The record is a 108-nucleotide RNA from Rossellomorea vietnamensis, which matches "SAM riboswitch aptamer (S box leader)" in Rfam. The source organism's lineage runs through Bacteria, Bacillati, Caryophanales, Bacillaceae and Rossellomorea. About the family: The SAM riboswitch is found upstream of a number of genes which code for proteins involved in methionine or cysteine biosynthesis in Gram-positive bacteria.
RNA sequence: CACUUAUCCAGAGAGGUAGAGGGACUGGCCCGAUGAUACCUCAGCAACAGAUUCUAUUUCAUAGAACACUGUGCUAAUUCCACAAGCGUUGAGCUUGAAAGAUAAGUU
Numbered sequence: 001c002a003c004u005u006a007u008c009c010a011g012a013g014a015g016g017u018a019g020a021g022g023g024a025c026u027g028g029c030c031c032g033a034u035g036a037u038a039c040c041u042c043a044g045c046a047a048c049a050g051a052u053u054c055u056a057u058u059u060c061a062u063a064g065a066a067c068a069c070u071g072u073g074c075u076a077a078u079u080c081c082a083c084a085a086g087c088g089u090u091g092a093g094c095u096u097g098a099a100a101g102a103u104a105a106g107u108u
Base pairs, nucleotide, nucleotide: 002107003106004105005104006103007102008101013042014041015040016039017038021031022030023029026082027081028080043075044074045073046072048071049070050067052065053064079100083097084096085095086094087093